A member of the RNA family "Ruegeria cis2 sRNA" from Flavimaricola marinus, 150 nucleotides long. The match comes from Rfam's covariance-model search (89 bits). By type it is a small RNA. The base pairs follow the family's consensus structure, which was predicted with RNAfold.
RNA sequence: AGAGCUGAAAUGCGGAUUGUAGUUCAGGAACACGUAUCCGCGGCACUGGUCGAUGGCAUGGAAAAGCGGGUUCCAGUCGAACAUAACAAGCAUGUAUCCGGGCAACGAAUUGGCGACGAACAUCUUGCCGCUGGCGAUCAUGUUGGCGCG
Dot-bracket structure: .(.(.((...(..((.......))..)...))).)..(((((((....)))).)))..........((.((((.....))))....(.((((((...(((.((((.(..(((....)))...).))).).).))....)))))).)..))